The family of this 63-nucleotide RNA from Pelodiscus sinensis is "Small nucleolar RNA SNORD24". For this family Rfam cites "U24, a novel intron-encoded small nucleolar RNA with two 12 nt long, phylogenetically conserved complementarities to 28S rRNA" (Qu et al., Nucleic Acids Res, 1995). It is annotated as a C/D-box small nucleolar RNA. Rfam 15.1 lists 2,843 matches to the family in 1,188 species. Pairs were carried over by alignment from the consensus structure, which was predicted with PFOLD.

RNA sequence: UGCAAGUGAUGUUAAUAUUUGUUUGAGGAUUAAUGAUGACUGUUCACCAAGAUCGCUGAUGCA
Numbered sequence: 001u002g003c004a005a006g007u008g009a010u011g012u013u014a015a016u017a018u019u020u021g022u023u024u025g026a027g028g029a030u031u032a033a034u035g036a037u038g039a040c041u042g043u044u045c046a047c048c049a050a051g052a053u054c055g056c057u058g059a060u061g062c063a
Base pairs, nucleotide, nucleotide: 001063002062003061004060